[Rfam]
RNA sequence: GUGCCAUGAUGUAACUGUCAACACAUCAUUCUGAAGAAUUGUGUGGACACCUUCUGUAACUGAGCACC
Numbered sequence: 001g002u003g004c005c006a007u008g009a010u011g012u013a014a015c016u017g018u019c020a021a022c023a024c025a026u027c028a029u030u031c032u033g034a035a036g037a038a039u040u041g042u043g044u045g046g047a048c049a050c051c052u053u054c055u056g057u058a059a060c061u062g063a064g065c066a067c068c
Base pairs, nucleotide, nucleotide: 001067002066003065004064

Small nucleolar RNA SNORD63: a 68-nucleotide RNA sequence from Burhinus bistriatus. A search with the family's covariance model found it, with a score of 59 bits. A reference for the family is Galardi et al. (2002), "Purified box C/D snoRNPs are able to reproduce site-specific 2'-O-methylation of target RNA in vitro", Mol Cell Biol. NCBI's taxonomy places the organism under Eukaryota, Archosauria, Dinosauria, Neognathae, Burhinus. snoRNA U63 is found in both humans and mice. The base pairs follow the family's consensus structure, which was predicted with PFOLD.